[Rfam]
RNA sequence: CCAGAAAAGUUAAAUGUGAUAGCUUUUAAGAGCAGACUAAAAGUGUUCUGCUAGUGGGUCUGCUUCGCUAUGGUGAGAAGCAGUAACCUGCAAGACCGUCAAAUUGCGGGAAAGUCCUUAGAGCCUUUGCUACCGCCUCUGCAUGGAAACAUAGCAGUGUGCACCAGGGUAAUGACCUCGGGUAUGGUAAAAACGCAAAGGAUUGGAUAAUCUGCAGCCAAGUCCUAAGGGUGUAAAACCUAUGGAUGCAGUUCAACGACUAAAUGGUGGUCGGUUUCAACGCAAGUUGAAGCUUAAGAUAUAGUCUGGCCCCCCAGAAAUGGGGCC
Numbered sequence: 001c002c003a004g005a006a007a008a009g010u011u012a013a014a015u016g017u018g019a020u021a022g023c024u025u026u027u028a029a030g031a032g033c034a035g036a037c038u039a040a041a042a043g044u045g046u047u048c049u050g051c052u053a054g055u056g057g058g059u060c061u062g063c064u065u066c067g068c069u070a071u072g073g074u075g076a077g078a079a080g081c082a083g084u085a086a087c088c089u090g091c092a093a094g095a096c097c098g099u100c101a102a103a104u105u106g107c108g109g110g111a112a113a114g115u116c117c118u119u120a121g122a123g124c125c126u127u128u129g130c131u132a133c134c135g136c137c138u139c140u141g142c143a144u145g146g147a148a149a150c151a152u153a154g155c156a157g158u159g160u161g162c163a164c165c166a167g168g169g170u171a172a173u174g175a176c177c178u179c180g181g182g183u184a185u186g187g188u189a190a191a192a193a194c195g196c197a198a199a200g201g202a203u204u205g206g207a208u209a210a211u212c213u214g215c216a217g218c219c220a221a222g223u224c225c226u227a228a229g230g231g232u233g234u235a236a237a238a239c240c241u242a243u244g245g246a247u248g249c250a251g252u253u254c255a256a257c258g259a260c261u262a263a264a265u266g267g268u269g270g271u272c273g274g275u276u277u278c279a280a281c282g283c284a285a286g287u288u289g290a291a292g293c294u295u296a297a298g299a300u301a302u303a304g305u306c307u308g309g310c311c312c313c314c315c316a317g318a319a320a321u322g323g324g325g326c327c
Stems, first nucleotide, its partner, number of pairs: 005027008094272005100266002105216006115207003217252002222247004230240003256307001258306005274293008312325005